SAM-I/IV (S-adenosyl methionine) riboswitch aptamer: a 106-nucleotide RNA from Oceanococcus atlanticus. Lineage of the source: Bacteria > Pseudomonadota > Chromatiales > Oceanococcaceae > Oceanococcus. Rfam links the family to the GO terms regulation of gene expression and S-adenosylmethionine metabolic process.

RNA sequence: CCGCAUCAUCAAGAGCGGAUGCUUCGGCGUCCCACCAACCUGCCGUCCCGGCAAGGUGGUGCUGCACACGUAGGAUGUGGCCACUUCGGCAACCAAUGGGAUUCCU
Numbered sequence: 001c002c003g004c005a006u007c008a009u010c011a012a013g014a015g016c017g018g019a020u021g022c023u024u025c026g027g028c029g030u031c032c033c034a035c036c037a038a039c040c041u042g043c044c045g046u047c048c049c050g051g052c053a054a055g056g057u058g059g060u061g062c063u064g065c066a067c068a069c070g071u072a073g074g075a076u077g078u079g080g081c082c083a084c085u086u087c088g089g090c091a092a093c094c095a096a097u098g099g100g101a102u103u104c105c106u
Stems, first nucleotide, its partner, number of pairs: 007077004015033001017032005034060003039056003042052003048100002080090003